Rfam assigns this 59-nucleotide RNA sequence from Aegotheles bennettii to the family "Selenocysteine insertion sequence 1".
For this family Rfam cites "A novel RNA structural motif in the selenocysteine insertion element of eukaryotic selenoprotein mRNAs" (Walczak et al., RNA, 1996).
Rfam's curators write: The incorporation of selenocysteine into a protein sequence is directed by an in-frame UGA codon (usually a stop codon) within the coding region of the mRNA. Selenoprotein mRNAs contain a conserved secondary structure in the 3' UTR that is required for the distinction of UGA stop from UGA selenocysteine. The selenocysteine insertion sequence (SECIS) is around 60 nt in length and adopts a hairpin structure which is sufficiently well-defined and conserved to act as a computational screen for selenoprotein genes.
Pairs were carried over by alignment from the consensus structure, which is taken from published work.

[Rfam]
RNA sequence: UACUUGUGAUGACAGUCACAGCAUAAAGCACAGGCAGCUGUGACCUGAUUGUAGAAGUA
Numbered sequence: 001u002a003c004u005u006g007u008g009a010u011g012a013c014a015g016u017c018a019c020a021g022c023a024u025a026a027a028g029c030a031c032a033g034g035c036a037g038c039u040g041u042g043a044c045c046u047g048a049u050u051g052u053a054g055a056a057g058u059a
Stems, first nucleotide, its partner, number of pairs: 001059005015044008028035002